Molybdenum/Tungsten riboswitch aptamer (Moco RNA motif): a 124-nucleotide RNA from Oceanispirochaeta crateris.

[Rfam]
RNA sequence: AGCAAACUCUAGCUCCGAUUCAGGAUUUCCUAAGGGCAAACUCUUAGCCUAUGGGUUCUGAACAUUGGGUGCCCUGGAAACGGUGGUUGCCUCCCGCGUUUGAAAAGGAGACUAUACGCACGAG
Numbered sequence: 001a002g003c004a005a006a007c008u009c010u011a012g013c014u015c016c017g018a019u020u021c022a023g024g025a026u027u028u029c030c031u032a033a034g035g036g037c038a039a040a041c042u043c044u045u046a047g048c049c050u051a052u053g054g055g056u057u058c059u060g061a062a063c064a065u066u067g068g069g070u071g072c073c074c075u076g077g078a079a080a081c082g083g084u085g086g087u088u089g090c091c092u093c094c095c096g097c098g099u100u101u102g103a104a105a106a107g108g109a110g111a112c113u114a115u116a117c118g119c120a121c122g123a124g
Base pairs, nucleotide, nucleotide: 011113012112013110014109015108016107019062020061021060022059023058024057025056028055029054030053034050035049036048037047067092068091069090070089071088073086074083075082076081094102